[Rfam]
RNA sequence: UCGUUAGAAAGGGAUAUGAAAAUCUGUCCCGUGCCUAUCAGGCAUCAGAGUUUGAAACUAAACAAC
Numbered sequence: 001u002c003g004u005u006a007g008a009a010a011g012g013g014a015u016a017u018g019a020a021a022a023u024c025u026g027u028c029c030c031g032u033g034c035c036u037a038u039c040a041g042g043c044a045u046c047a048g049a050g051u052u053u054g055a056a057a058c059u060a061a062a063c064a065a066c
Stems, first nucleotide, its partner, number of pairs: 011030006032044004
RNA: lysM-Prevotella RNA